[Rfam]
RNA sequence: UUAGUAGAGGUUCAUGAACCAUCCCUCUAUAAAAAACUAGGACUGU
Number, nucleotide and partner (000 for none) at each position: 001u000002u000003a000004g000005u000006a028007g027008a026009g025010g024011u000012u000013c000014a000015u039016g038017a000018a000019c000020c000021a000022u000023c000024c010025c009026u008027c007028u006029a000030u000031a000032a000033a000034a000035a000036a000037c000038u016039a015040g000041g000042a000043c000044u000045g000046u000
RNA: PreQ1 (pre queuosine) riboswitch aptamer
Organism: Clostridium cavendishii